[Rfam]
RNA: Small nucleolar RNA SNORA63
RNA sequence: ACGCAGGAUAAGUUACAGUAUAGCUGUUAAGUGCUGUUCUGUCGUUCCCCCUGCAAAUAAUAAAUUGCUUCCUACUAUCCCUGUUUGUCUUGGCUCUUACGGCAGACAGGGACGCUUGGUCUCAAACAG
Number, nucleotide and partner (000 for none) at each position: 001a000002c000003g054004c053005a052006g051007g050008a000009u000010a000011a000012g000013u000014u000015a042016c041017a040018g039019u000020a037021u036022a035023g034024c033025u000026g000027u000028u000029a000030a000031g000032u000033g024034c023035u022036g021037u020038u000039c018040u017041g016042u015043c000044g000045u000046u000047c000048c000049c000050c007051c006052u005053g004054c003055a000056a000057a000058u000059a000060a000061u000062a000063a000064a000065u000066u000067g000068c000069u000070u000071c000072c000073u000074a000075c000076u000077a000078u000079c000080c110081c109082u108083g107084u000085u105086u104087g103088u102089c000090u000091u000092g000093g000094c000095u000096c000097u000098u000099a000100c000101g000102g088103c087104a086105g085106a000107c083108a082109g081110g080111g000112a000113c000114g000115c000116u000117u000118g000119g000120u000121c000122u000123c000124a000125a000126a000127c000128a000129g000